The record is a 96-nucleotide RNA from Vibrio astriarenae, which matches "t44 RNA" in Rfam. Rfam describes the family as follows. This family consists of a number of bacterial RNA genes of between 135 and 170 bases in length. The t44 gene has been identified in several species of enteric bacteria but homologs have also been identified in Pseudomonas and Coxiella species. By type it is a small RNA. The literature on the family includes a 2002 paper in Nucleic Acids Res by Tjaden et al., "Transcriptome analysis of Escherichia coli using high-density oligonucleotide probe arrays". Taxonomically the source falls in Vibrio (Bacteria, Pseudomonadati, Pseudomonadota, Gammaproteobacteria).
RNA sequence: UACACACAUUUAUUAUUUCACACACAUUCCGACACAUGUUCCGGGGUGCCCACCAUUAAGGUAGGGUCGGAUACAUGGGGGAUGUGGAGGCCUAAC
Numbered sequence: 001u002a003c004a005c006a007c008a009u010u011u012a013u014u015a016u017u018u019c020a021c022a023c024a025c026a027u028u029c030c031g032a033c034a035c036a037u038g039u040u041c042c043g044g045g046g047u048g049c050c051c052a053c054c055a056u057u058a059a060g061g062u063a064g065g066g067u068c069g070g071a072u073a074c075a076u077g078g079g080g081g082a083u084g085u086g087g088a089g090g091c092c093u094a095a096c
Stems, first nucleotide, its partner, number of pairs: 023086008035077005040071004048067004